The record is a 36-nucleotide sequence from Bos taurus, which matches "Iron response element I" in Rfam.
A search with the family's covariance model found it, with a score of 48 bits.
[Rfam]
RNA sequence: CAAUUUCCUGCUUCAACAGUGCUUGGAUGGAACUUG
Numbered sequence: 001c002a003a004u005u006u007c008c009u010g011c012u013u014c015a016a017c018a019g020u021g022c023u024u025g026g027a028u029g030g031a032a033c034u035u036g
Stems, first nucleotide, its partner, number of pairs: 001036003005032004010028001012027005017021001

Gene Ontology term of the family: response to iron ion.